[Rfam]
Annotation: The record is a 77-nucleotide RNA sequence from Oreochromis aureus, which matches "Small nucleolar RNA SNORD101" in Rfam. By type it is a C/D-box small nucleolar RNA. The source organism's lineage runs through Eukaryota, Teleostomi, Actinopteri, Osteoglossocephalai and Oreochromis. A search with the family's covariance model found it, with a score of 54 bits.

RNA sequence: GCAUGACUGAUGAUCCUAUCUUUUGUCGGAUACCCCUUCACUCUACAAUGAGUGAGACGCUCGCCGCUCUGACAUGC
Numbered sequence: 001g002c003a004u005g006a007c008u009g010a011u012g013a014u015c016c017u018a019u020c021u022u023u024u025g026u027c028g029g030a031u032a033c034c035c036c037u038u039c040a041c042u043c044u045a046c047a048a049u050g051a052g053u054g055a056g057a058c059g060c061u062c063g064c065c066g067c068u069c070u071g072a073c074a075u076g077c
Stems, first nucleotide, its partner, number of pairs: 001077005